[Rfam]
RNA sequence: GCGCAAAUGAUGGUAAAAUCACUGUUUGGGGGGGGGAAAAUGACAUGAACAAAGGAACCACCAAUACGC
Numbered sequence: 001g002c003g004c005a006a007a008u009g010a011u012g013g014u015a016a017a018a019u020c021a022c023u024g025u026u027u028g029g030g031g032g033g034g035g036g037a038a039a040a041u042g043a044c045a046u047g048a049a050c051a052a053a054g055g056a057a058c059c060a061c062c063a064a065u066a067c068g069c
Base pairs, nucleotide, nucleotide: 001069002068003067005065
Dot-bracket structure: (((.(...........................................................).)))